[Rfam]
RNA sequence: GGUUUAAAGGGUACCCAAACGGUCAAAAUACCUGAAAUAUAGGAGUACUUGACUAGAGUUAUAUGUAAGAAGACCGUACUUGAGGUGGAGAGAUUAUAUUUUAUGAUACCAAAAGGACUGAUAACGGCGAAGGCUGUCUUUUAUGUAAUAACUGACGUUGAAGGACGAAGGCAUAGAUAACUAACAGGAUUCGUUACCCUAGUAGUCUUUGCAGACAAUGAUGAAUGCCAUUAACUAGAUACUAAUUUUAGUUAUAUAAAUGAAAAUGAAAGCAUUUCACCUCAAGAGUAAUGUGGCAACGCAGGAACUGAAAUCACU
Numbered sequence: 001g002g003u004u005u006a007a008a009g010g011g012u013a014c015c016c017a018a019a020c021g022g023u024c025a026a027a028a029u030a031c032c033u034g035a036a037a038u039a040u041a042g043g044a045g046u047a048c049u050u051g052a053c054u055a056g057a058g059u060u061a062u063a064u065g066u067a068a069g070a071a072g073a074c075c076g077u078a079c080u081u082g083a084g085g086u087g088g089a090g091a092g093a094u095u096a097u098a099u100u101u102u103a104u105g106a107u108a109c110c111a112a113a114a115g116g117a118c119u120g121a122u123a124a125c126g127g128c129g130a131a132g133g134c135u136g137u138c139u140u141u142u143a144u145g146u147a148a149u150a151a152c153u154g155a156c157g158u159u160g161a162a163g164g165a166c167g168a169a170g171g172c173a174u175a176g177a178u179a180a181c182u183a184a185c186a187g188g189a190u191u192c193g194u195u196a197c198c199c200u201a202g203u204a205g206u207c208u209u210u211g212c213a214g215a216c217a218a219u220g221a222u223g224a225a226u227g228c229c230a231u232u233a234a235c236u237a238g239a240u241a242c243u244a245a246u247u248u249u250a251g252u253u254a255u256a257u258a259a260a261u262g263a264a265a266a267u268g269a270a271a272g273c274a275u276u277u278c279a280c281c282u283c284a285a286g287a288g289u290a291a292u293g294u295g296g297c298a299a300c301g302c303a304g305g306a307a308c309u310g311a312a313a314u315c316a317c318u
Stems, first nucleotide, its partner, number of pairs: 001281003009278001011166002014163001016160001018159003022053005030046002032042003057153003062147004068142007076118001079115003084110003090101003124135001127134002171212003175208002180206002186200003223277006231256001232254008260267002283310002292303004
RNA: Bacterial small subunit ribosomal RNA, nucleotides 510 to 827